[Rfam]
RNA sequence: UGACCAUUUCAUCGUGCCGGUACGGACGGGGAAAUUAGUGCCAUACGGACAGCCGGGUCAAAUGCCGA
Numbered sequence: 001u002g003a004c005c006a007u008u009u010c011a012u013c014g015u016g017c018c019g020g021u022a023c024g025g026a027c028g029g030g031g032a033a034a035u036u037a038g039u040g041c042c043a044u045a046c047g048g049a050c051a052g053c054c055g056g057g058u059c060a061a062a063u064g065c066c067g068a
Base pairs, nucleotide, nucleotide: 001060002059003058004057005056006035007034008033009032010031

The family of this 68-nucleotide RNA is "Streptococcus sRNA SpF59 (ldcC RNA)".